[Rfam]
RNA sequence: CGGCGGGACACCCCUCCCCAACGAGGGGCGAAUAUCUGAGAGGGUAUCGUCA
Numbered sequence: 001c002g003g004c005g006g007g008a009c010a011c012c013c014c015u016c017c018c019c020a021a022c023g024a025g026g027g028g029c030g031a032a033u034a035u036c037u038g039a040g041a042g043g044g045u046a047u048c049g050u051c052a
Stems, first nucleotide, its partner, number of pairs: 011028006032047006
Rfam assigns this 52-nucleotide sequence from Histidinibacterium lentulum to the family "serC leader". The organism belongs to Histidinibacterium, within Bacteria. Its family is annotated with regulation of gene expression in the Gene Ontology. This family is a putative regulatory RNA structure that is found upstream of the serC-serA operon in some alpha-proteobacteria. The final stem of the structure overlaps the ribosome binding site of the serC reading frame. On this family, see Corbino et al., Genome Biol 2005: "Evidence for a second class of S-adenosylmethionine riboswitches and other regulatory RNA motifs in alpha-proteobacteria".